[Rfam]
RNA sequence: CUGAAUGUAACUUGAAUCCACACACGUCUCGACACCUGCCGUUGGGUGCCCGGUGAAUCACCGGGUUGCGCCAGGGGAGACGUGGAGGUCCAAC
Dot-bracket structure: ......................((((((((....((((.(((.....(((((.........))))).))).)))).))))))))..........